[Rfam]
Description: Shown here is a 165-nucleotide RNA from Pseudoalteromonas sp. NBT06-2, a member of the family "Group II catalytic intron D1-D4-3". Rfam's curators write: Group II introns are found in rRNA, tRNA and mRNA of organelles in fungi, plants and protists, and also in mRNA in bacteria. It scores 132 bits against the family's covariance model. The pairing is the family consensus, mapped onto this sequence.
RNA sequence: UAAAUCGUGAGGAAUGGUCUGAAGGAAGCCGCUAGCAAAUCUGCGAGCUGAUGAACAAAAACAUCAUAUGAGGCGUAGGCUGGAGGCGAGUUGGCACAAGACAACGAAGCCAAGUGAUCUAACGGCCACCGUAAAUGAUGCAGCAGUGCAGAGAAGGUCUUUGUG
Dot-bracket structure: ((..((....))..)).............(((..((...((((((.((((...........((((((.....(((..(((((..(((..((((........))))...)))...........)))))..)))..))))))))))..))))))....))....)))